[Rfam]
RNA sequence: CCGCCUCCUGAAACAAGUAAUCAAGAAUAGGCCGUGCUGCCUGGUAACAGCCUAUCCUGGAUUACUUGAACCGGGCUACGG
Numbered sequence: 001c002c003g004c005c006u007c008c009u010g011a012a013a014c015a016a017g018u019a020a021u022c023a024a025g026a027a028u029a030g031g032c033c034g035u036g037c038u039g040c041c042u043g044g045u046a047a048c049a050g051c052c053u054a055u056c057c058u059g060g061a062u063u064a065c066u067u068g069a070a071c072c073g074g075g076c077u078a079c080g081g
Stems, first nucleotide, its partner, number of pairs: 002080002007075004014068009024058002027055006